[Rfam]
Description
The family of this 76-nucleotide sequence from Methylovorus sp. MM2 is "SAH (S-adenosyl-L-homocysteine) riboswitch aptamer". The family's consensus secondary structure is taken from published work. On this family, see Wang et al., Mol Cell 2008: "Riboswitches that sense S-adenosylhomocysteine and activate genes involved in coenzyme recycling".

RNA sequence: UAUUCCGAGGAGCGCUGCGAGAGGUUAAGCUACACUCCCAGGCUCGGAACAGCGUUUCAAACGGCGUUCACCUUAC
Numbered sequence: 001u002a003u004u005c006c007g008a009g010g011a012g013c014g015c016u017g018c019g020a021g022a023g024g025u026u027a028a029g030c031u032a033c034a035c036u037c038c039c040a041g042g043c044u045c046g047g048a049a050c051a052g053c054g055u056u057u058c059a060a061a062c063g064g065c066g067u068u069c070a071c072c073u074u075a076c
Base pairs, nucleotide, nucleotide: 003049004048005047006046007045008044021037022036023035026032